[Rfam]
RNA sequence: AGUGCUUCAGUGUGAACAUUGAGCACCAUUUUGGUGCAAUUUUUGUUACGGUGCCCUUUUAUCGCUCCGUGAAAGCGGUCACAAAGAAACUCUGCAAUACUUGUUUGC
Numbered sequence: 001a002g003u004g005c006u007u008c009a010g011u012g013u014g015a016a017c018a019u020u021g022a023g024c025a026c027c028a029u030u031u032u033g034g035u036g037c038a039a040u041u042u043u044u045g046u047u048a049c050g051g052u053g054c055c056c057u058u059u060u061a062u063c064g065c066u067c068c069g070u071g072a073a074a075g076c077g078g079u080c081a082c083a084a085a086g087a088a089a090c091u092c093u094g095c096a097a098u099a100c101u102u103g104u105u106u107g108c
Base pairs, nucleotide, nucleotide: 002026003025004024005023006022007021009020010019011018012017027103028102031099035096036095037094038093043087044086046084047083050080051079052078057075058074059073060072063069064068
RNA: ES222 sRNA
Organism: Klebsiella pneumoniae